Flavo-1 RNA: a 76-nucleotide RNA from Flavobacterium muglaense. The source organism's lineage runs through Bacteria, Pseudomonadati, Bacteroidota, Flavobacteriaceae and Flavobacterium. The family has 201 seed sequences and 7,497 matches in Rfam 15.1.
[Rfam]
RNA sequence: CCCUAGCCCUGAUAGCAGUGGAAAUCCUACCGAGCCUUUUUGGCGAGGUAGAUUGUAGCGAAUAGCAGGAAAUAGC
Numbered sequence: 001c002c003c004u005a006g007c008c009c010u011g012a013u014a015g016c017a018g019u020g021g022a023a024a025u026c027c028u029a030c031c032g033a034g035c036c037u038u039u040u041u042g043g044c045g046a047g048g049u050a051g052a053u054u055g056u057a058g059c060g061a062a063u064a065g066c067a068g069g070a071a072a073u074a075g076c
Base pairs, nucleotide, nucleotide: 009068010067011066013064014063018059019058023054024053025052026051029049030048031047034044035043036042